Description: A member of the RNA family "T-box leader" from Bacillus gobiensis, 232 nucleotides long. By type it is a cis-regulatory leader. Lineage of the source: Bacteria > Bacillati > Caryophanales > Bacillaceae > Bacillus. The match comes from Rfam's covariance-model search (143 bits). The family has 48 seed sequences and 19,395 matches in Rfam 15.1. Rfam describes the family as follows. Uncharged tRNA acts as the effector for transcription antitermination of genes in the T-box leader family. A reference for the family is Grundy et al. (1994), "Interaction between the acceptor end of tRNA and the T box stimulates antitermination in the Bacillus subtilis tyrS gene: a new role for the discriminator base", J Bacteriol.
RNA sequence: UUAAAGGUUUUGAUUGAGAGAAGUAAAUUCAUUAUCCCUGUUUAAGAGAGCUGAUGGUUGGUGAAAAUCAGUGCAUAUAAAUGAAUUGAAUUACCCUCAUGAACCGCUUUGACGAACAGGCGAUGCCUUAUUAGUAAAAGAACGGAAGCAUUCCGUUAUCGUAAUUGAGUGUUAAGAAUGGCUAUUCAUUCUUUUCAGUAGGGUGGUACCGCGAUAAAUGAUCGUCCCUUCG
Numbered sequence: 001u002u003a004a005a006g007g008u009u010u011u012g013a014u015u016g017a018g019a020g021a022a023g024u025a026a027a028u029u030c031a032u033u034a035u036c037c038c039u040g041u042u043u044a045a046g047a048g049a050g051c052u053g054a055u056g057g058u059u060g061g062u063g064a065a066a067a068u069c070a071g072u073g074c075a076u077a078u079a080a081a082u083g084a085a086u087u088g089a090a091u092u093a094c095c096c097u098c099a100u101g102a103a104c105c106g107c108u109u110u111g112a113c114g115a116a117c118a119g120g121c122g123a124u125g126c127c128u129u130a131u132u133a134g135u136a137a138a139a140g141a142a143c144g145g146a147a148g149c150a151u152u153c154c155g156u157u158a159u160c161g162u163a164a165u166u167g168a169g170u171g172u173u174a175a176g177a178a179u180g181g182c183u184a185u186u187c188a189u190u191c192u193u194u195u196c197a198g199u200a201g202g203g204u205g206g207u208a209c210c211g212c213g214a215u216a217a218a219u220g221a222u223c224g225u226c227c228c229u230u231c232g
Stems, first nucleotide, its partner, number of pairs: 007104002015099004026087006039075003050072006107140004112135002143155003174193007200229004211225005